[Rfam]
RNA sequence: AAAGUAUCAUAUGCAACUGCUAUGGAUUGGUUUAUUGCAGUGUGCUUUGCCUUU
Numbered sequence: 001a002a003a004g005u006a007u008c009a010u011a012u013g014c015a016a017c018u019g020c021u022a023u024g025g026a027u028u029g030g031u032u033u034a035u036u037g038c039a040g041u042g043u044g045c046u047u048u049g050c051c052u053u054u
Base pairs, nucleotide, nucleotide: 001054002053003052008049011046013045014044016041017040018039019038020037022035023034024033025032026031

The record is a 54-nucleotide RNA sequence from Hymenochirus boettgeri, which matches "Editing element of GABA-3 exon 9" in Rfam. The family has 52 seed sequences and 4,208 matches in Rfam 15.1. A reference for the family is Ohlson et al. (2007), "Editing modifies the GABA(A) receptor subunit alpha3", RNA. It scores 65 bits against the family's covariance model. The family's consensus secondary structure is taken from published work. NCBI's taxonomy places the organism under Eukaryota, Vertebrata, Gnathostomata, Pipidae, Hymenochirus.